[Rfam]
The record is a 107-nucleotide RNA sequence from Marinomonas aquimarina, which matches "TPP riboswitch aptamer (THI element)" in Rfam. The match comes from Rfam's covariance-model search (74 bits). Gene Ontology term of the family: thiamine pyrophosphate binding. The organism belongs to Marinomonas, within Bacteria.
RNA sequence: AUUUAUCUCAUGGGGUGUGGCAUCUAGCUGCUGAGAAACCAUUAUUGGUUAACCCACUGAACCUGAACCAGAUCAUGCUGGCGUAGGAAUUGAGAUAGCAAGCCCUU
Numbered sequence: 001a002u003u004u005a006u007c008u009c010a011u012g013g014g015g016u017g018u019g020g021c022a023u024c025u026a027g028c029u030g031c032u033g034a035g036a037a038a039c040c041a042u043u044a045u046u047g048g049u050u051a052a053c054c055c056a057c058u059g060a061a062c063c064u065g066a067a068c069c070a071g072a073u074c075a076u077g078c079u080g081g082c083g084u085a086g087g088a089a090u091u092g093a094g095a096u097a098g099c100a101a102g103c104c105c106u107u
Stems, first nucleotide, its partner, number of pairs: 006095005011056004017031005038049004062087004068081004